RNA sequence: CCCAUGGCGAUGCCAUGGGCUGUUUUUUGCCGCGCCUCCGGCGCU
Numbered sequence: 001c002c003c004a005u006g007g008c009g010a011u012g013c014c015a016u017g018g019g020c021u022g023u024u025u026u027u028u029g030c031c032g033c034g035c036c037u038c039c040g041g042c043g044c045u
Stems, first nucleotide, its partner, number of pairs: 001019008032044005
Overview:
This 45-nucleotide RNA from Sulfuriroseicoccus oceanibius belongs to the Rfam family "Acido-Lenti-1 RNA". NCBI's taxonomy places the organism under Bacteria, Pseudomonadati, Verrucomicrobiota, Verrucomicrobiia, Sulfuriroseicoccus. The base pairs follow the family's consensus structure, which is taken from published work. Rfam 15.1 lists 2,607 matches to the family in 171 species.